[Rfam]
Description
Rfam assigns this 112-nucleotide RNA from Pseudaquabacterium pictum to the family "Glycine riboswitch aptamer".

RNA sequence: CAGCAGCCGUCUGGAGAGACCUCACCCCCGCGGUGAGGCACCGAAGGAGCAAGGCCACGGGCACGGCGCCCGGCGGCUGAAUCUCUCAGGUACCAAGGACAGUGGGAGCGGC
Numbered sequence: 001c002a003g004c005a006g007c008c009g010u011c012u013g014g015a016g017a018g019a020c021c022u023c024a025c026c027c028c029c030g031c032g033g034u035g036a037g038g039c040a041c042c043g044a045a046g047g048a049g050c051a052a053g054g055c056c057a058c059g060g061g062c063a064c065g066g067c068g069c070c071c072g073g074c075g076g077c078u079g080a081a082u083c084u085c086u087c088a089g090g091u092a093c094c095a096a097g098g099a100c101a102g103u104g105g106g107a108g109c110g111g112c
Stems, first nucleotide, its partner, number of pairs: 007106002011102003020038007040091003043087002047085003053078004
The source organism's lineage runs through Bacteria, Betaproteobacteria, Burkholderiales, Sphaerotilaceae and Pseudaquabacterium.